[Rfam]
RNA sequence: AAUGGCAGGUGCGGGAGUCAGGGCCGGUAAUCUGGCGCAGUUUCUCGCCGCGGGCGUGCAGGAGGUUCACAGCUCUGCCGGGCAGUGGCUUCCCUCAUUGAUGCGCUACCGCAAUCCGGGGCUGUCGAUGUCUACCGACCCCGAUGCCGACGAAUAUGCCCGCUACGCCGUUAACGGCGAUGCAGUGGCGGAGAUGAAGGCGAUUAUCUCCGGCUACGGACGCUAACGAUUUUUACCGCGCAUCAUGUCGCCCAAUGUGAUGCUAUUUGUACCAGGCCCCUGCCAUUAACAGGGGCCUUUUUUU
Numbered sequence: 001a002a003u004g005g006c007a008g009g010u011g012c013g014g015g016a017g018u019c020a021g022g023g024c025c026g027g028u029a030a031u032c033u034g035g036c037g038c039a040g041u042u043u044c045u046c047g048c049c050g051c052g053g054g055c056g057u058g059c060a061g062g063a064g065g066u067u068c069a070c071a072g073c074u075c076u077g078c079c080g081g082g083c084a085g086u087g088g089c090u091u092c093c094c095u096c097a098u099u100g101a102u103g104c105g106c107u108a109c110c111g112c113a114a115u116c117c118g119g120g121g122c123u124g125u126c127g128a129u130g131u132c133u134a135c136c137g138a139c140c141c142c143g144a145u146g147c148c149g150a151c152g153a154a155u156a157u158g159c160c161c162g163c164u165a166c167g168c169c170g171u172u173a174a175c176g177g178c179g180a181u182g183c184a185g186u187g188g189c190g191g192a193g194a195u196g197a198a199g200g201c202g203a204u205u206a207u208c209u210c211c212g213g214c215u216a217c218g219g220a221c222g223c224u225a226a227c228g229a230u231u232u233u234u235a236c237c238g239c240g241c242a243u244c245a246u247g248u249c250g251c252c253c254a255a256u257g258u259g260a261u262g263c264u265a266u267u268u269g270u271a272c273c274a275g276g277c278c279c280c281u282g283c284c285a286u287u288a289a290c291a292g293g294g295g296c297c298u299u300u301u302u303u304u
Base pairs, nucleotide, nucleotide: 003274004273005272009268011266014264015263016042017041018040021038023036024035025034026033045082046081050078051077053076054075056073057072061068062067085129086128088126089124093120094119095118100116101115102114103112104111105110131144132143148162149161150157166262167261169259170258171257177253179251182248183247184246185244188241189240193239195238196237199234200233202231203230204229205228207226275297276296277295278294279293280292281291282290
MicL sRNA: a 304-nucleotide sequence from Pluralibacter gergoviae. Gene Ontology term of the family: translation repressor activity. A reference for the family is Guo et al. (2014), "MicL, a new sigmaE-dependent sRNA, combats envelope stress by repressing synthesis of Lpp, the major outer membrane lipoprotein", Genes Dev. From the family's description: mRNA-interfering complementary RNA regulator of Lpp. Transcription factor sigma E dependant sRNA. Together with MicA and RybB it allows sigma E to repress the synthesis of all abundant outer membrane proteins in response to stress. Rfam classes the family as a small RNA.